[Rfam]
RNA sequence: GAUCGGUGCGUUUACGGAUUCACCGACGUGCUUUGACAUAAAACUUCAAGGGAGUCGUAAUCCUUCGUUAUCAAAAACGUAAACACAUGAAUAGUC
Dot-bracket structure: ..((((((.(((....))).)))))).......................................((((......)))).................

The record is a 96-nucleotide sequence from Sporosarcina newyorkensis, which matches "RT-9 RNA" in Rfam. It is one of the family's seed sequences. Taxonomically the source falls in Sporosarcina newyorkensis (Bacteria, Bacillota, Bacilli, Sporosarcina). The family's RNA type in Rfam is small RNA. The base pairs follow the family's consensus structure, which is taken from published work.